[Rfam]
RNA sequence: GGGAGCGAAUAUCACUCCCCAGCAAGGCCCAUCCGGCGCCUGCGCCCACAAUCCCAGCGUCGGAUCGCGCCCGACCCGUCCGGCUGUCCCCCCGGGCGGGUC
Numbered sequence: 001g002g003g004a005g006c007g008a009a010u011a012u013c014a015c016u017c018c019c020c021a022g023c024a025a026g027g028c029c030c031a032u033c034c035g036g037c038g039c040c041u042g043c044g045c046c047c048a049c050a051a052u053c054c055c056a057g058c059g060u061c062g063g064a065u066c067g068c069g070c071c072c073g074a075c076c077c078g079u080c081c082g083g084c085u086g087u088c089c090c091c092c093c094g095g096g097c098g099g100g101u102c
Stems, first nucleotide, its partner, number of pairs: 001019005027070002030067001031065003035061005073102011
RNA: Rhizobiales-2 RNA